[Rfam]
RNA sequence: UUGCGCGCGGCAGGUCUUAUACGACCAGCUCCUGCUGAACCCUCCCAGGACCGGAAGGUAGCAAGAGUAAGCGGUUGUAGCGGUGCGAUGUAAGUAGCCUGCCGUUUU
Numbered sequence: 001u002u003g004c005g006c007g008c009g010g011c012a013g014g015u016c017u018u019a020u021a022c023g024a025c026c027a028g029c030u031c032c033u034g035c036u037g038a039a040c041c042c043u044c045c046c047a048g049g050a051c052c053g054g055a056a057g058g059u060a061g062c063a064a065g066a067g068u069a070a071g072c073g074g075u076u077g078u079a080g081c082g083g084u085g086c087g088a089u090g091u092a093a094g095u096a097g098c099c100u101g102c103c104g105u106u107u108u
Base pairs, nucleotide, nucleotide: 008104009103010102011101012100013099014098015097017093018092019091020090021089022087023086024084025083
About this RNA: This 108-nucleotide RNA sequence from Ilyomonas limi belongs to the Rfam family "Bacteroidales small SRP". It is annotated as a non-coding RNA gene. The family's consensus secondary structure is taken from published work. Rfam links the family to the GO terms SRP-dependent cotranslational protein targeting to membrane, signal sequence recognition and signal recognition particle, plasma membrane targeting. The family is grouped with related families in Rfam's "SRP clan". NCBI's taxonomy places the organism under Bacteria, Pseudomonadati, Chitinophagales, Chitinophagaceae, Ilyomonas.